[Rfam]
RNA: Small nucleolar RNA SNORA63
Organism: Cavia porcellus
RNA sequence: GAGCAGGAUUCAGACUACAACAUGGCUGUAAAGUGCUGUGCUUUCAUUCCUCCUGUUCAAAGCAAAGAUGUUUCUUAACUAUACCUGUCUGCCAUGCCUGUGUAGCAGCCAGGGAUGCGUGGUCUCACACAU
Numbered sequence: 001g002a003g004c005a006g007g008a009u010u011c012a013g014a015c016u017a018c019a020a021c022a023u024g025g026c027u028g029u030a031a032a033g034u035g036c037u038g039u040g041c042u043u044u045c046a047u048u049c050c051u052c053c054u055g056u057u058c059a060a061a062g063c064a065a066a067g068a069u070g071u072u073u074c075u076u077a078a079c080u081a082u083a084c085c086u087g088u089c090u091g092c093c094a095u096g097c098c099u100g101u102g103u104a105g106c107a108g109c110c111a112g113g114g115a116u117g118c119g120u121g122g123u124c125u126c127a128c129a130c131a132u
Stems, first nucleotide, its partner, number of pairs: 003056005017044001019042001021040006084113004089108004
Dot-bracket structure: ..(((((.........(.(.((((((........)))))).).).......)))))...........................((((.((((............)))).))))...................